This 91-nucleotide RNA from Canis lupus belongs to the Rfam family "mir-8799 microRNA precursor family". Gene Ontology terms of the family: miRNA-mediated post-transcriptional gene silencing and RISC complex. The base pairs follow the family's consensus structure, which was predicted with RNAalifold. It scores 67 bits against the family's covariance model.
RNA sequence: GGGGGAAGGCCAGAUCCUGGGCUGUGUCCCCUGUGCCUAGUGCUCCCGGGCCUGUGCUGUUGGAUUCGGGCUCCAGGUCACACAGCCCCCU
Numbered sequence: 001g002g003g004g005g006a007a008g009g010c011c012a013g014a015u016c017c018u019g020g021g022c023u024g025u026g027u028c029c030c031c032u033g034u035g036c037c038u039a040g041u042g043c044u045c046c047c048g049g050g051c052c053u054g055u056g057c058u059g060u061u062g063g064a065u066u067c068g069g070g071c072u073c074c075a076g077g078u079c080a081c082a083c084a085g086c087c088c089c090c091u
Stems, first nucleotide, its partner, number of pairs: 001091005009083001013078001016077002019074003023070001025068002027064002030062001031059001033057004040052001042051003